The record is an 85-nucleotide RNA from Thalassospira mesophila, which matches "sRNA-Xcc1" in Rfam. It scores 71 bits against the family's covariance model.
RNA sequence: GGCGGGAGGGCGGUGAAUAUAAGACCCGAAAGGGGAAUAAACCCGCCUGCCUCUCGACAGGUUUCGAACCUCCCGCCACCAGCGC
Numbered sequence: 001g002g003c004g005g006g007a008g009g010g011c012g013g014u015g016a017a018u019a020u021a022a023g024a025c026c027c028g029a030a031a032g033g034g035g036a037a038u039a040a041a042c043c044c045g046c047c048u049g050c051c052u053c054u055c056g057a058c059a060g061g062u063u064u065c066g067a068a069c070c071u072c073c074c075g076c077c078a079c080c081a082g083c084g085c
Stems, first nucleotide, its partner, number of pairs: 001077009012043003016038001025034003045062005